The record is a 321-nucleotide RNA from Heterocephalus glaber, which matches "Small Cajal body-specific RNA 7" in Rfam. For this family Rfam cites "Cajal body-specific small nuclear RNAs: a novel class of 2'-O-methylation and pseudouridylation guide RNAs" (Darzacq et al., EMBO J, 2002). Rfam links the family to the GO terms RNA processing and nucleolus. The source organism's lineage runs through Eukaryota, Metazoa, Eumetazoa, Craniata and Heterocephalus.
RNA sequence: UGGAAAUGAUGAAAUAGAGAUACUUGGGUGUUGAAUGUUGCAUGACUGGAAAUUUUAAUAGUCUGUUAAUUCUUCUAGUUGAAUAUUUUAUAGUUAGUUAAUAGAAUGUGUGUGCAUGUGUGUGUUUUUGUGGUGGCUAGGAAAGGGGGCACUGAAUGGUGAUGCUGAUAUUGGAGUGCAUCUGAGGCUGUUGUAGAAAUAACAUGGGUUGUUGAUUACAACAUUGCUGAUGAUUAUAACCCAAGAACAGCUCACCUAACCAGCCUAGCACCCCAAAAUCUCUAACAGGUUCAUUAAACAUGGUCCUGUGAUCUGAUCCAA
Numbered sequence: 001u002g003g004a005a006a007u008g009a010u011g012a013a014a015u016a017g018a019g020a021u022a023c024u025u026g027g028g029u030g031u032u033g034a035a036u037g038u039u040g041c042a043u044g045a046c047u048g049g050a051a052a053u054u055u056u057a058a059u060a061g062u063c064u065g066u067u068a069a070u071u072c073u074u075c076u077a078g079u080u081g082a083a084u085a086u087u088u089u090a091u092a093g094u095u096a097g098u099u100a101a102u103a104g105a106a107u108g109u110g111u112g113u114g115c116a117u118g119u120g121u122g123u124g125u126u127u128u129u130g131u132g133g134u135g136g137c138u139a140g141g142a143a144a145g146g147g148g149g150c151a152c153u154g155a156a157u158g159g160u161g162a163u164g165c166u167g168a169u170a171u172u173g174g175a176g177u178g179c180a181u182c183u184g185a186g187g188c189u190g191u192u193g194u195a196g197a198a199a200u201a202a203c204a205u206g207g208g209u210u211g212u213u214g215a216u217u218a219c220a221a222c223a224u225u226g227c228u229g230a231u232g233a234u235u236a237u238a239a240c241c242c243a244a245g246a247a248c249a250g251c252u253c254a255c256c257u258a259a260c261c262a263g264c265c266u267a268g269c270a271c272c273c274c275a276a277a278a279u280c281u282c283u284a285a286c287a288g289g290u291u292c293a294u295u296a297a298a299c300a301u302g303g304u305c306c307u308g309u310g311a312u313c314u315g316a317u318c319c320a321a
Stems, first nucleotide, its partner, number of pairs: 001320004189223008198213006
Dot-bracket structure: ((((........................................................................................................................................................................................((((((((.((((((....))))))..)))))))).............................................................................................)))).